[Rfam]
RNA sequence: UGCAUAUUUCGCCAUGGCCCCUAACGGUGAAUGCGAGCAUUCACCUACCGGGUAAGAGGAAGCUCGACCGCCCCUUCAAGCGAUGAUCUCCUUCAUCGACGAACACCGUAGCGUGUUCGGGGUCGAGCCGAUCUGCAAGCUGCUGCCGAUUGCCCCA
Numbered sequence: 001u002g003c004a005u006a007u008u009u010c011g012c013c014a015u016g017g018c019c020c021c022u023a024a025c026g027g028u029g030a031a032u033g034c035g036a037g038c039a040u041u042c043a044c045c046u047a048c049c050g051g052g053u054a055a056g057a058g059g060a061a062g063c064u065c066g067a068c069c070g071c072c073c074c075u076u077c078a079a080g081c082g083a084u085g086a087u088c089u090c091c092u093u094c095a096u097c098g099a100c101g102a103a104c105a106c107c108g109u110a111g112c113g114u115g116u117u118c119g120g121g122g123u124c125g126a127g128c129c130g131a132u133c134u135g136c137a138a139g140c141u142g143c144u145g146c147c148g149a150u151u152g153c154c155c156c157a
Stems, first nucleotide, its partner, number of pairs: 016072003119156004129152002132149002135146003

This 157-nucleotide RNA sequence from Rhizobium sp. Leaf306 belongs to the Rfam family "ALIL pseudoknot". A search with the family's covariance model found it, with a score of 76 bits. Taxonomically the source falls in Rhizobium (Bacteria, Pseudomonadati, Pseudomonadota, Alphaproteobacteria). The base pairs follow the family's consensus structure, which is taken from published work. It is annotated as a cis-regulatory element.